Shown here is a 136-nucleotide sequence from Esox lucius, a member of the family "Small nucleolar RNA SNORA57". By type it is an H/ACA-box small nucleolar RNA. From the family's description: U99 belongs to the H/ACA class of snoRNAs which are thought to guide the sites of modification of uridines to pseudouridines, the target for this family is unknown. The family has 26 seed sequences and 1,736 matches in Rfam 15.1. Pairs were carried over by alignment from the consensus structure, which was predicted with PFOLD. On this family, see Vitali et al., Nucleic Acids Res 2003: "Identification of 13 novel human modification guide RNAs". A search with the family's covariance model found it, with a score of 72 bits.
RNA sequence: CCUCCAUCUUGACACACAUGUUGUUGCUCAGUACUCAAUGUGUGAUUAUUCGGAGGUAGAUCAAAGCUAGUGCUAUGUCUUCGGUACCAGUGUGUGUUAUUGUCUGCUGGUUCUAUCCUCAAUCACUAGCACAAUG
Numbered sequence: 001c002c003u004c005c006a007u008c009u010u011g012a013c014a015c016a017c018a019u020g021u022u023g024u025u026g027c028u029c030a031g032u033a034c035u036c037a038a039u040g041u042g043u044g045a046u047u048a049u050u051c052g053g054a055g056g057u058a059g060a061u062c063a064a065a066g067c068u069a070g071u072g073c074u075a076u077g078u079c080u081u082c083g084g085u086a087c088c089a090g091u092g093u094g095u096g097u098u099a100u101u102g103u104c105u106g107c108u109g110g111u112u113c114u115a116u117c118c119u120c121a122a123u124c125a126c127u128a129g130c131a132c133a134a135u136g
Base pairs, nucleotide, nucleotide: 001056002055003054004053005052013044014043015042016041017040018039020036023034024033068128069127070126071125072124087110088109089108090107091106092105